[Rfam]
RNA sequence: GCACAUUCUCAGGGCGGGGUGGAAUUCCCCACCGGCGGUAAGUCAUUAGACAAGCCCGCGAGCGCCUCUUUUCCAAGAGGGUCAGCAGAUCUGGUGCGACUCCAGAGCCGACGGUCAUAGUCCGGAUGAAAGAGAAUGGGU
Numbered sequence: 001g002c003a004c005a006u007u008c009u010c011a012g013g014g015c016g017g018g019g020u021g022g023a024a025u026u027c028c029c030c031a032c033c034g035g036c037g038g039u040a041a042g043u044c045a046u047u048a049g050a051c052a053a054g055c056c057c058g059c060g061a062g063c064g065c066c067u068c069u070u071u072u073c074c075a076a077g078a079g080g081g082u083c084a085g086c087a088g089a090u091c092u093g094g095u096g097c098g099a100c101u102c103c104a105g106a107g108c109c110g111a112c113g114g115u116c117a118u119a120g121u122c123c124g125g126a127u128g129a130a131a132g133a134g135a136a137u138g139g140g141u
Stems, first nucleotide, its partner, number of pairs: 004138007017029003031121002033110002035059004054108002062086002090106005112124003
This 141-nucleotide RNA from Cognatiyoonia sediminum belongs to the Rfam family "FMN riboswitch aptamer (RFN element)". The source organism's lineage runs through Bacteria, Pseudomonadota, Alphaproteobacteria, Rhodobacterales and Cognatiyoonia. The RFN element is a highly conserved domain that is found frequently in the 5'-untranslated regions of prokaryotic mRNAs that encode for flavin mononucleotide (FMN) biosynthesis and transport proteins.